[Rfam]
Notes:
Small nucleolar RNA SNORD116: a 92-nucleotide sequence from Rattus norvegicus. Gene Ontology terms of the family: nucleolus and RNA processing. On this family, see Cavaille et al., Proc Natl Acad Sci U S A 2000: "Identification of brain-specific and imprinted small nucleolar RNA genes exhibiting an unusual genomic organization". The organism belongs to Rattus, within Eukaryota.
RNA sequence: GGAUCGAUGAUGAUUUCCAAUAAAACAUUCCUUGGAAAGCUGAACAAAAUGAGUGAAAACUCAAUACCGCCACUAUCAUCGGACUGAGGUCC
Numbered sequence: 001g002g003a004u005c006g007a008u009g010a011u012g013a014u015u016u017c018c019a020a021u022a023a024a025a026c027a028u029u030c031c032u033u034g035g036a037a038a039g040c041u042g043a044a045c046a047a048a049a050u051g052a053g054u055g056a057a058a059a060c061u062c063a064a065u066a067c068c069g070c071c072a073c074u075a076u077c078a079u080c081g082g083a084c085u086g087a088g089g090u091c092c
Stems, first nucleotide, its partner, number of pairs: 001092005026055005032047003